[Rfam]
RNA sequence: CCCGGGGCUUUGCCCCGGGCUGACAUCGGCCGCACCCUUGGUGCU
Number, nucleotide and partner (000 for none) at each position: 001c019002c018003c017004g016005g015006g014007g013008c012009u000010u000011u000012g008013c007014c006015c005016c004017g003018g002019g001020c000021u000022g000023a000024c000025a000026u000027c000028g000029g000030c000031c000032g044033c043034a042035c041036c040037c000038u000039u000040g036041g035042u034043g033044c032045u000